[Rfam]
RNA sequence: AAAGUUUGACAGACAAUCGCUGGUGAUGCAAAUCACGAGAGGAAAGUCCGGGCUCCACAGGGCAGGAUGCUGGAUAACGUCCAGUCAACGCGAGUUGAAGGAUAGUGCCACAGAAAUGGACCGCCGAUGGCCGCUUUAUGCGGAUCAGGCAAGGAUGGAACCGUGGUGUAAGAGACCACGAGGAACGCUGGUGACUUCGUUCCUGGUAAACCCCAUCUGGAGCAAGACCUAAUGGGACGCAAGCAGCUUUCGAGGCUGCAGCCUUAGCCCGAGGUGCGUCUGGGUUGGUCGCUGGAACUGUGCAGCAAUGUACAGUCUAGAUAGAUGAUUGUCACUUACAAGUGGGAGGGUAGCCCCCGUAUUACCACGGUAAGUACAGAACCCGGCUUACGGCGAACUUUCCAC
Numbered sequence: 001a002a003a004g005u006u007u008g009a010c011a012g013a014c015a016a017u018c019g020c021u022g023g024u025g026a027u028g029c030a031a032a033u034c035a036c037g038a039g040a041g042g043a044a045a046g047u048c049c050g051g052g053c054u055c056c057a058c059a060g061g062g063c064a065g066g067a068u069g070c071u072g073g074a075u076a077a078c079g080u081c082c083a084g085u086c087a088a089c090g091c092g093a094g095u096u097g098a099a100g101g102a103u104a105g106u107g108c109c110a111c112a113g114a115a116a117u118g119g120a121c122c123g124c125c126g127a128u129g130g131c132c133g134c135u136u137u138a139u140g141c142g143g144a145u146c147a148g149g150c151a152a153g154g155a156u157g158g159a160a161c162c163g164u165g166g167u168g169u170a171a172g173a174g175a176c177c178a179c180g181a182g183g184a185a186c187g188c189u190g191g192u193g194a195c196u197u198c199g200u201u202c203c204u205g206g207u208a209a210a211c212c213c214c215a216u217c218u219g220g221a222g223c224a225a226g227a228c229c230u231a232a233u234g235g236g237a238c239g240c241a242a243g244c245a246g247c248u249u250u251c252g253a254g255g256c257u258g259c260a261g262c263c264u265u266a267g268c269c270c271g272a273g274g275u276g277c278g279u280c281u282g283g284g285u286u287g288g289u290c291g292c293u294g295g296a297a298c299u300g301u302g303c304a305g306c307a308a309u310g311u312a313c314a315g316u317c318u319a320g321a322u323a324g325a326u327g328a329u330u331g332u333c334a335c336u337u338a339c340a341a342g343u344g345g346g347a348g349g350g351u352a353g354c355c356c357c358c359g360u361a362u363u364a365c366c367a368c369g370g371u372a373a374g375u376a377c378a379g380a381a382c383c384c385g386g387c388u389u390a391c392g393g394c395g396a397a398c399u400u401u402c403c404a405c
Stems, first nucleotide, its partner, number of pairs: 001401008010392001012333007020039002023036005044389003048386005053222004060270004065218005070084005085099001086097004100213002105211002107207003121154002123150003128147003132143001162180006182203006190195001226290004235281006261275005297316008

The family of this 405-nucleotide sequence from Paenibacillus selenitireducens is "Bacterial RNase P class A". NCBI's taxonomy places the organism under Bacteria, Bacillati, Bacillota, Bacilli, Paenibacillus. The family is grouped with related families in Rfam's "RNaseP clan". Rfam's curators write: Ribonuclease P (RNase P) is a ubiquitous endoribonuclease, found in archaea, bacteria and eukarya as well as chloroplasts and mitochondria.